[Rfam]
RNA sequence: UUUGCCGUGAGGAAGAAUCUGAAGGAAGCUGUAGGCAAAGCCAUGGUCUGAGGAACACGAACCGCAUAUAAGGCUAUACAGUUCGGAUGAGCUUGCCGAACAAAGCAAAAUCCAAUGCUACCAAUGGACUGUGUAGUAAAUGCGGCAGGUAUACGGGGCGAAGGCUAUCGUU
Numbered sequence: 001u002u003u004g005c006c007g008u009g010a011g012g013a014a015g016a017a018u019c020u021g022a023a024g025g026a027a028g029c030u031g032u033a034g035g036c037a038a039a040g041c042c043a044u045g046g047u048c049u050g051a052g053g054a055a056c057a058c059g060a061a062c063c064g065c066a067u068a069u070a071a072g073g074c075u076a077u078a079c080a081g082u083u084c085g086g087a088u089g090a091g092c093u094u095g096c097c098g099a100a101c102a103a104a105g106c107a108a109a110a111u112c113c114a115a116u117g118c119u120a121c122c123a124a125u126g127g128a129c130u131g132u133g134u135a136g137u138a139a140a141u142g143c144g145g146c147a148g149g150u151a152u153a154c155g156g157g158g159c160g161a162a163g164g165c166u167a168u169c170g171u172u
Stems, first nucleotide, its partner, number of pairs: 001016003005012002028172001030170002035165002040159003044155002046150005062145006073137003077133007085113004091106004

The record is a 172-nucleotide RNA from Thermoanaerobacteraceae bacterium SP2, which matches "Group II catalytic intron D1-D4-3" in Rfam. Its family is annotated with Group II intron splicing in the Gene Ontology. The organism belongs to Thermoanaerobacteraceae, within Bacteria. From the family's description: Group II introns are found in rRNA, tRNA and mRNA of organelles in fungi, plants and protists, and also in mRNA in bacteria. A reference for the family is Chu et al. (2001), "Control of branch-site choice by a group II intron", EMBO J.